[Rfam]
RNA sequence: UGGGCCCCGGGUUGGUGGCAGCCAUUUCUCAUCUAACCCUAAUUGAGACGGGCGUAGGCGCUGUGCUUUUGCUUACCGCGCGCUGUUUUUCUCGCUGACUUUCAGCGGGCGGAAAAGCCUCGGCCUACCGCCAGACACCAUCCAGUGUGGAACAAACAAAAAAUGUCAGCCGCUGGCUCGCUCACCUCUCCCGGGAACCUGCGGUAGCCCGCCCGCCCAGCCCCAGCGCCCCGCCUGAGGCCGCGGUCGGCCCGGGGCUUCUCCGGAGGUGCCCAUUGCCGCCGUGAAGAGUUGGGCUCUGUCAGCCGCGGGUCGCUCGGUGGGCCGAGGCAUGGCUGUAACCGCAGGGAAAGGAACGGAGCGGGGUCCCCGCGCGCGGUGCGCUUCCCUGAGCUGUGGGACUUGCACCCGGGACUCGGCUCAGACACCU
Numbered sequence: 001u002g003g004g005c006c007c008c009g010g011g012u013u014g015g016u017g018g019c020a021g022c023c024a025u026u027u028c029u030c031a032u033c034u035a036a037c038c039c040u041a042a043u044u045g046a047g048a049c050g051g052g053c054g055u056a057g058g059c060g061c062u063g064u065g066c067u068u069u070u071g072c073u074u075a076c077c078g079c080g081c082g083c084u085g086u087u088u089u090u091c092u093c094g095c096u097g098a099c100u101u102u103c104a105g106c107g108g109g110c111g112g113a114a115a116a117g118c119c120u121c122g123g124c125c126u127a128c129c130g131c132c133a134g135a136c137a138c139c140a141u142c143c144a145g146u147g148u149g150g151a152a153c154a155a156a157c158a159a160a161a162a163a164u165g166u167c168a169g170c171c172g173c174u175g176g177c178u179c180g181c182u183c184a185c186c187u188c189u190c191c192c193g194g195g196a197a198c199c200u201g202c203g204g205u206a207g208c209c210c211g212c213c214c215g216c217c218c219a220g221c222c223c224c225a226g227c228g229c230c231c232c233g234c235c236u237g238a239g240g241c242c243g244c245g246g247u248c249g250g251c252c253c254g255g256g257g258c259u260u261c262u263c264c265g266g267a268g269g270u271g272c273c274c275a276u277u278g279c280c281g282c283c284g285u286g287a288a289g290a291g292u293u294g295g296g297c298u299c300u301g302u303c304a305g306c307c308g309c310g311g312g313u314c315g316c317u318c319g320g321u322g323g324g325c326c327g328a329g330g331c332a333u334g335g336c337u338g339u340a341a342c343c344g345c346a347g348g349g350a351a352a353g354g355a356a357c358g359g360a361g362c363g364g365g366g367u368c369c370c371c372g373c374g375c376g377c378g379g380u381g382c383g384c385u386u387c388c389c390u391g392a393g394c395u396g397u398g399g400g401a402c403u404u405g406c407a408c409c410c411g412g413g414a415c416u417c418g419g420c421u422c423a424g425a426c427a428c429c430u
Base pairs, nucleotide, nucleotide: 005195006194007193009191010190011189014186015185016184017183018182020178021177022176023175024174065118066117067116068115069114077111078110079109081107082106083105084104085103094170095169096168097167098166099165100163101162102161198348199347200346201345202344203343204342211331212330213329214327215326217324218323222320223319225317226316227315228314230312231311232310233309234308242286243285244284245283246282248281249280250279251278254274255273256272288300289299290298291297359422360421361420362419364417365416366415367414368413369412370411379408380407381406382405383404386401387400388399389398
Rfam assigns this 430-nucleotide RNA from Cervus elaphus to the family "Vertebrate telomerase RNA". Rfam classes the family as a non-coding RNA gene. The match comes from Rfam's covariance-model search (342 bits). About the family: Telomerase is a ribonucleoprotein reverse transcriptase that synthesises telomeric DNA. Telomerase RNAs differ greatly in sequence and structure between vertebrates, ciliates and yeasts, but they share a 5' pseudoknot structure close to the template sequence. Vertebrate telomerase RNAs have a 3' H/ACA snoRNA-like domain.